[Rfam]
RNA sequence: CCUGAUCGAGGAUGACAGCUAUUUUAUUGGUGACUGCUGGAUGAAACUUGCGGAUAUGGGACUGAGAUCAGUG
Numbered sequence: 001c002c003u004g005a006u007c008g009a010g011g012a013u014g015a016c017a018g019c020u021a022u023u024u025u026a027u028u029g030g031u032g033a034c035u036g037c038u039g040g041a042u043g044a045a046a047c048u049u050g051c052g053g054a055u056a057u058g059g060g061a062c063u064g065a066g067a068u069c070a071g072u073g
Stems, first nucleotide, its partner, number of pairs: 002071004